This 508-nucleotide RNA sequence from Saccharothrix espanaensis belongs to the Rfam family "Saccharopolyspora sRNA 350".
Lineage of the source: Bacteria > Bacillati > Actinomycetes > Pseudonocardiaceae > Saccharothrix espanaensis.
A search with the family's covariance model found it, with a score of 281 bits.
Rfam classes the family as an antisense RNA.
RNA sequence: UUGACGGUGUAGUCCCACUCGGCCUGCGGCCCGGCCAGCACCUGGUCGCCGAAGUAGUCGCCGUUGGCCAGCACGUCGAGCACGGUCUGGUCGCCGUACUCGCUCUGGCCGAUCUUGUUGACCUUGCCGUGCGCGAUCAGGAACACCUGGUCCUGCGCGCCGCCGGUCUCCACGAUGACGUCGCCCGGACCGUACUCGACCUGCCGGAACCGGCCGGCGAGCGCGGCCAGCGCCUCGACGUCGUCGUAGCCGCGCAGCAGUGGGAGCUCGGUCAGCUCCAGCGGGAUGACCUGCACCUCCGCGCCGGUGUUGGUGAACGUCAGCCGGCCGUCGCCGACGGCGUAGCUGAGCCGGCGGUUGACGCGGUAGGCGCCACCGGCGGCUUGCACCCAGGGCAGCACCUUGAGCAGCCACCGCGAGGUGAUGCCCUGCAUCUGCGGGACGGACUUGGUCGUCGUGGCCAGGUUCCGCGCCGCCGCUGUGCCGAGGCUCAGCCGGGGCCGAUCGG
Numbered sequence: 001u002u003g004a005c006g007g008u009g010u011a012g013u014c015c016c017a018c019u020c021g022g023c024c025u026g027c028g029g030c031c032c033g034g035c036c037a038g039c040a041c042c043u044g045g046u047c048g049c050c051g052a053a054g055u056a057g058u059c060g061c062c063g064u065u066g067g068c069c070a071g072c073a074c075g076u077c078g079a080g081c082a083c084g085g086u087c088u089g090g091u092c093g094c095c096g097u098a099c100u101c102g103c104u105c106u107g108g109c110c111g112a113u114c115u116u117g118u119u120g121a122c123c124u125u126g127c128c129g130u131g132c133g134c135g136a137u138c139a140g141g142a143a144c145a146c147c148u149g150g151u152c153c154u155g156c157g158c159g160c161c162g163c164c165g166g167u168c169u170c171c172a173c174g175a176u177g178a179c180g181u182c183g184c185c186c187g188g189a190c191c192g193u194a195c196u197c198g199a200c201c202u203g204c205c206g207g208a209a210c211c212g213g214c215c216g217g218c219g220a221g222c223g224c225g226g227c228c229a230g231c232g233c234c235u236c237g238a239c240g241u242c243g244u245c246g247u248a249g250c251c252g253c254g255c256a257g258c259a260g261u262g263g264g265a266g267c268u269c270g271g272u273c274a275g276c277u278c279c280a281g282c283g284g285g286a287u288g289a290c291c292u293g294c295a296c297c298u299c300c301g302c303g304c305c306g307g308u309g310u311u312g313g314u315g316a317a318c319g320u321c322a323g324c325c326g327g328c329c330g331u332c333g334c335c336g337a338c339g340g341c342g343u344a345g346c347u348g349a350g351c352c353g354g355c356g357g358u359u360g361a362c363g364c365g366g367u368a369g370g371c372g373c374c375a376c377c378g379g380c381g382g383c384u385u386g387c388a389c390c391c392a393g394g395g396c397a398g399c400a401c402c403u404u405g406a407g408c409a410g411c412c413a414c415c416g417c418g419a420g421g422u423g424a425u426g427c428c429c430u431g432c433a434u435c436u437g438c439g440g441g442a443c444g445g446a447c448u449u450g451g452u453c454g455u456c457g458u459g460g461c462c463a464g465g466u467u468c469c470g471c472g473c474c475g476c477c478g479c480u481g482u483g484c485c486g487a488g489g490c491u492c493a494g495c496c497g498g499g500g501c502c503g504a505u506c507g508g
Stems, first nucleotide, its partner, number of pairs: 006390007014382002019327001021325002025322001026320003031315001035313008045305001047303003051299002054233002058229001060227005065111004075103001077102004082097005117222003122217002127212001129210002132206001133204003140197001143196001150191001154189001156187002159184002166173002235295001240290006251281001254278001256277003261270002329342004351379004356374002362370001391431007399423003403418001407415001437476004443470004447465006477507002481501002484499002488495001